[Rfam]
RNA: mir-23 microRNA precursor family
RNA sequence: AGCUGGAGGGAUUCCUGGCAGAGUGAUUUUUAGUUGCGAUGUCAUGUAAAUCACAUUGCCAGGGAUUUCCAACCAGCU
Number, nucleotide and partner (000 for none) at each position: 001a078002g077003c000004u075005g074006g073007a000008g000009g070010g069011a066012u065013u064014c063015c062016u061017g060018g059019c058020a057021g056022a000023g054024u053025g052026a051027u050028u049029u048030u000031u000032a000033g000034u000035u000036g000037c000038g000039a000040u000041g000042u000043c000044a000045u000046g000047u000048a029049a028050a027051u026052c025053a024054c023055a000056u021057u020058g019059c018060c017061a016062g015063g014064g013065a012066u011067u000068u000069c010070c009071a000072a000073c006074c005075a004076g000077c002078u001